[Rfam]
RNA sequence: UUCAACCCGUAUGACUGGCGGAAACAGUGGGUCACCACGAGGGAAUACGGGAAUCGUUUUUAGCCGGCCGCCUGGGCACAAUAU
Numbered sequence: 001u002u003c004a005a006c007c008c009g010u011a012u013g014a015c016u017g018g019c020g021g022a023a024a025c026a027g028u029g030g031g032u033c034a035c036c037a038c039g040a041g042g043g044a045a046u047a048c049g050g051g052a053a054u055c056g057u058u059u060u061u062a063g064c065c066g067g068c069c070g071c072c073u074g075g076g077c078a079c080a081a082u083a084u
Stems, first nucleotide, its partner, number of pairs: 006051007015042002017072005027038004063077003
Annotation
The family of this 84-nucleotide RNA from Hydrogenispora ethanolica is "ZMP/ZTP riboswitch aptamer (pfl RNA motif)". It scores 61 bits against the family's covariance model. The organism belongs to Hydrogenispora, within Bacteria.